[Rfam]
Small Cajal body specific RNA 3: a 133-nucleotide RNA sequence from Ciconia maguari.
Gene Ontology terms of the family: nucleolus, RNA processing and Cajal body.
On this family, see Darzacq et al., EMBO J 2002: "Cajal body-specific small nuclear RNAs: a novel class of 2'-O-methylation and pseudouridylation guide RNAs".
The base pairs follow the family's consensus structure, which was predicted with RNAalifold.
Rfam classes the family as a small Cajal body RNA.
The match comes from Rfam's covariance-model search (103 bits).
The source organism's lineage runs through Eukaryota, Sarcopterygii, Sauria, Archosauria and Ciconia.
Rfam's curators write: scaRNAs are a specific class of small nuclear RNAs which localise to the Cajal bodies and guide the modification of RNA polymerase II transcribed spliceosomal RNAs U1, U2, U4, U5 and U12.
RNA sequence: ACUGGAAGCUGCUGGGACUGGUUGGGCAAAAGAAAAAUGUUUUGUCCACUGUUGCAGUCUUCCUAGAGCAAAGUGGAGGUCUCUGUCUGCUUUAGGAGAGCCAACUAAACUGGAUCGUUCCCCUCCAUAUACG
Numbered sequence: 001a002c003u004g005g006a007a008g009c010u011g012c013u014g015g016g017a018c019u020g021g022u023u024g025g026g027c028a029a030a031a032g033a034a035a036a037a038u039g040u041u042u043u044g045u046c047c048a049c050u051g052u053u054g055c056a057g058u059c060u061u062c063c064u065a066g067a068g069c070a071a072a073g074u075g076g077a078g079g080u081c082u083c084u085g086u087c088u089g090c091u092u093u094a095g096g097a098g099a100g101c102c103a104a105c106u107a108a109a110c111u112g113g114a115u116c117g118u119u120c121c122c123c124u125c126c127a128u129a130u131a132c133g
Base pairs, nucleotide, nucleotide: 004063005062006061008058009057010056011055012054021050023048024047025046026045027044032041075126076125077124078123079122083117085115086114087113089111091109092108093107094106095105